This 588-nucleotide part of an RNA from Halanaerobium praevalens belongs to the Rfam family "Bacterial small subunit ribosomal RNA". The sequence is in the family's curated seed alignment. Its Rfam clan is "SSU clan".
RNA sequence: UUUAUGGAGAGUUUGAUCCUGGCUCAGGACGAACGCUGGCGGCGUGCUUAACACAUGCAAGUCGAACGGUCUACCUCGACUGAUACCUUCGGGUUGAAGACGAGAUCUAGAUAGUGGCGGACGGGUGAGUAACACGUGAAUAAUCUGUCCUCAAGUCUGGGAUAACCUGGCGAAAGUCGGGCUAAUCCGAGGUAAGCUGAGAGUGUGGCAUCACACAAUCAGAAAAGGUGGCUCUGCCAUCGUUUGAGGAGGAGUUCGCGGUAGAUUAGCUAGCUGGUGAGGUAAUGGCUCACCAGGGCAACAAUCUAUAGCUGGUCUGAGAGGACGAUCAGUCACACUGGAACUGAGACACGGUCCAGACUCCUACGGGAGGCAGCAGUGGGGAAUCUUCCACAAUGGGCGAAAGCCUGAUGGAGCAACGCCGCGUGAGUGAAGAAGGUCUUAGGAUUGUAAAGCUCUGUCCUUAGGGAAGAACCGUGGGUAUAGUAAAUGCUACCCACCUGACGGUACCUUUGGAGGAAGCACUGGCUAACUACGUGCCAGCAGCCGCGGUAAUACGUAGAGUGCAAGCGUUGUCCGGAAUUAUUG
Number, nucleotide and partner (000 for none) at each position: 001u000002u000003u000004a000005u000006g000007g000008a000009g025010a024011g023012u022013u021014u000015g000016a000017u000018c000019c000020u000021g013022g012023c011024u010025c009026a000027g578028g577029a576030c575031g000032a574033a573034c572035g571036c570037u569038g000039g425040c424041g423042g422043c421044g420045u418046g417047c383048u000049u000050a000051a000052c381053a380054c379055a000056u378057g377058c376059a000060a000061g118062u117063c116064g000065a000066a115067c114068g000069g000070u111071c110072u000073a095074c000075c093076u092077c091078g090079a089080c000081u000082g000083a000084u000085a000086c000087c000088u000089u079090c078091g077092g076093g075094u000095u073096g000097a000098a000099g000100a000101c000102g000103a000104g000105a000106u000107c000108u000109a000110g071111a070112u000113a000114g067115u066116g063117g062118c061119g000120g000121a000122c000123g000124g000125g336126u335127g334128a000129g000130u000131a000132a000133c000134a000135c260136g259137u258138g257139a256140a255141u254142a000143a000144u253145c252146u000147g000148u000149c249150c248151u247152c246153a245154a244155g243156u000157c191158u190159g000160g188161g000162a000163u000164a000165a000166c181167c180168u179169g178170g177171c176172g000173a000174a000175a000176g171177u170178c169179g168180g167181g166182c000183u000184a000185a000186u000187c000188c160189g000190a158191g157192g000193u000194a000195a000196g000197c222198u221199g220200a219201g000202a000203g216204u000205g214206u213207g212208g000209c000210a000211u000212c207213a206214c205215a000216c203217a000218a000219u200220c199221a198222g197223a000224a000225a000226a000227g241228g240229u239230g238231g237232c000233u000234c000235u000236g000237c231238c230239a229240u228241c227242g000243u155244u154245u153246g152247a151248g150249g149250a000251g000252g145253a144254g141255u140256u139257c138258g137259c136260g135261g000262u308263a307264g306265a000266u000267u000268a000269g299270c298271u297272a000273g000274c296275u295276g294277g293278u292279g291280a290281g289282g000283u000284a000285a000286u000287g000288g000289c281290u280291c279292a278293c277294c276295a275296g274297g271298g270299c269300a000301a000302c000303a000304a000305u000306c264307u263308a262309u000310a000311g333312c332313u331314g330315g326316u325317c324318u323319g000320a000321g000322a000323g318324g317325a316326c315327g000328a000329u000330c314331a313332g312333u311334c127335a126336c125337a000338c359339u358340g357341g356342a355343a000344c000345u000346g000347a000348g000349a000350c000351a000352c000353g000354g000355u342356c341357c340358a339359g338360a000361c372362u371363c370364c369365u000366a000367c000368g000369g364370g363371a362372g361373g000374c000375a000376g058377c057378a056379g054380u053381g052382g000383g047384g000385a000386a000387u000388c000389u415390u000391c414392c413393a412394c000395a000396a000397u410398g409399g408400g407401c406402g000403a000404a000405a000406g401407c400408c399409u398410g397411a000412u393413g392414g391415a389416g000417c046418a045419a000420c044421g043422c042423c041424g040425c039426g000427u000428g458429a457430g456431u455432g000433a000434a000435g000436a000437a000438g449439g448440u447441c446442u000443u000444a000445g000446g441447a440448u439449u438450g000451u000452a000453a000454a000455g431456c430457u429458c428459u000460g000461u000462c519463c515464u000465u000466a512467g511468g510469g000470a000471a000472g505473a000474a000475c000476c000477g000478u499479g498480g497481g496482u495483a494484u000485a000486g000487u000488a000489a000490a000491u000492g000493c000494u483495a482496c481497c480498c479499a478500c000501c000502u000503g000504a000505c472506g000507g000508u000509a000510c468511c467512u466513u000514u000515g463516g000517a000518g000519g462520a000521a000522g567523c566524a565525c564526u563527g000528g000529c000530u000531a000532a000533c562534u561535a560536c559537g558538u000539g000540c000541c000542a000543g550544c549545a000546g000547c000548c000549g544550c543551g000552g000553u000554a000555a000556u000557a000558c537559g536560u535561a534562g533563a526564g525565u524566g523567c522568a000569a037570g036571c035572g034573u033574u032575g030576u029577c028578c027579g000580g000581a000582a000583u000584u000585a000586u000587u000588g000

Its family is annotated with ribosome and structural constituent of ribosome in the Gene Ontology. The family has 99 seed sequences and 42,628 matches in Rfam 15.1. NCBI's taxonomy places the organism under Bacteria, Bacillota, Clostridia, Halanaerobiaceae, Halanaerobium praevalens.